[Rfam]
Record summary: The family of this 360-nucleotide sequence from Phenylobacterium kunshanense is "Alphaproteobacteria transfer-messenger RNA". Rfam classes the family as a non-coding RNA gene. A search with the family's covariance model found it, with a score of 245 bits. NCBI's taxonomy places the organism under Bacteria, Pseudomonadati, Pseudomonadota, Alphaproteobacteria, Phenylobacterium.

RNA sequence: GUCCUUCAAAUCCUGAACCAUAGCGCCUAUAUGUGAGGGGUCGGGUUCGCCCGACUAUGGAGAUAAACGCGCGUAUAAUAAGCGGACUGGACCCGGGUGCGAUUCCCGGCGGCUCCACCAAUCUUCGCCGGGUUAUCGCCGGGCAAGCACGGGGCCGAUCAGCAUCGACAGACGUGUAAAGGCGUUGCUUUCUCUCGGCCUGACCCACCGUUCCGGGUCUUAAACUAAAUGCGAACGAUAACUUCGCUGAGGAAGUUCGCCUGGCUGCGUAAUGCGGUCCGGUAACAUCCGAACCAAGUCCUAGGGGUUCAGAUCCUUAGGCGGGGCCCGGAGGGCGCCUGGCAACAGAAGCCCUCCACU
Numbered sequence: 001g002u003c004c005u006u007c008a009a010a011u012c013c014u015g016a017a018c019c020a021u022a023g024c025g026c027c028u029a030u031a032u033g034u035g036a037g038g039g040g041u042c043g044g045g046u047u048c049g050c051c052c053g054a055c056u057a058u059g060g061a062g063a064u065a066a067a068c069g070c071g072c073g074u075a076u077a078a079u080a081a082g083c084g085g086a087c088u089g090g091a092c093c094c095g096g097g098u099g100c101g102a103u104u105c106c107c108g109g110c111g112g113c114u115c116c117a118c119c120a121a122u123c124u125u126c127g128c129c130g131g132g133u134u135a136u137c138g139c140c141g142g143g144c145a146a147g148c149a150c151g152g153g154g155c156c157g158a159u160c161a162g163c164a165u166c167g168a169c170a171g172a173c174g175u176g177u178a179a180a181g182g183c184g185u186u187g188c189u190u191u192c193u194c195u196c197g198g199c200c201u202g203a204c205c206c207a208c209c210g211u212u213c214c215g216g217g218u219c220u221u222a223a224a225c226u227a228a229a230u231g232c233g234a235a236c237g238a239u240a241a242c243u244u245c246g247c248u249g250a251g252g253a254a255g256u257u258c259g260c261c262u263g264g265c266u267g268c269g270u271a272a273u274g275c276g277g278u279c280c281g282g283u284a285a286c287a288u289c290c291g292a293a294c295c296a297a298g299u300c301c302u303a304g305g306g307g308u309u310c311a312g313a314u315c316c317u318u319a320g321g322c323g324g325g326g327c328c329c330g331g332a333g334g335g336c337g338c339c340u341g342g343c344a345a346c347a348g349a350a351g352c353c354c355u356c357c358a359c360u
Stems, first nucleotide, its partner, number of pairs: 040055005059195005069188002071185004083174002087171003093109005110157007196210003202219005324340004330357006